[Rfam]
RNA sequence: UCCCAAUGAUGAAAUCCUUUUCCGUCUUACUGACUGUAUCGGCUCCAGAACCUGCAAAGGUUGAACCCACUGGGGCCAGCAGUUGGAGAAGAGGAUGCCCUUGUUCCUGAGGAACGGUCUGAUGGGAC
Numbered sequence: 001u002c003c004c005a006a007u008g009a010u011g012a013a014a015u016c017c018u019u020u021u022c023c024g025u026c027u028u029a030c031u032g033a034c035u036g037u038a039u040c041g042g043c044u045c046c047a048g049a050a051c052c053u054g055c056a057a058a059g060g061u062u063g064a065a066c067c068c069a070c071u072g073g074g075g076c077c078a079g080c081a082g083u084u085g086g087a088g089a090a091g092a093g094g095a096u097g098c099c100c101u102u103g104u105u106c107c108u109g110a111g112g113a114a115c116g117g118u119c120u121g122a123u124g125g126g127a128c
Stems, first nucleotide, its partner, number of pairs: 001127004